[Rfam]
RNA sequence: GUGCAAAUGAUGGAAACUACUUCAACUGAGCUCAGUGAUGUUUUCAAAGGAACCACUGAUGCAC
Numbered sequence: 001g002u003g004c005a006a007a008u009g010a011u012g013g014a015a016a017c018u019a020c021u022u023c024a025a026c027u028g029a030g031c032u033c034a035g036u037g038a039u040g041u042u043u044u045c046a047a048a049g050g051a052a053c054c055a056c057u058g059a060u061g062c063a064c
Stems, first nucleotide, its partner, number of pairs: 001064005
Shown here is a 64-nucleotide RNA from Mauremys mutica, a member of the family "Small nucleolar RNA SNORD42". Rfam classes the family as a C/D-box small nucleolar RNA. snoRNA U42 is found in intron 3 of the ribosomal protein L23a (RPL23a) gene in humans and is also present in mice. The literature on the family includes a 2002 paper in Mol Cell Biol by Galardi et al., "Purified box C/D snoRNPs are able to reproduce site-specific 2'-O-methylation of target RNA in vitro".